[Rfam]
RNA sequence: CCCGCCGUUAAAACAGCGGGCUAUUUUCUGUCGUUCCUCCGGGACU
Number, nucleotide and partner (000 for none) at each position: 001c020002c019003c018004g017005c016006c000007g014008u013009u000010a000011a000012a000013a008014c007015a000016g005017c004018g003019g002020g001021c000022u000023a000024u000025u000026u000027u000028c000029u000030g000031u000032c000033g045034u044035u043036c042037c041038u000039c000040c000041g037042g036043g035044a034045c033046u000
RNA: Acido-Lenti-1 RNA
Organism: Candidatus Electrothrix aarhusensis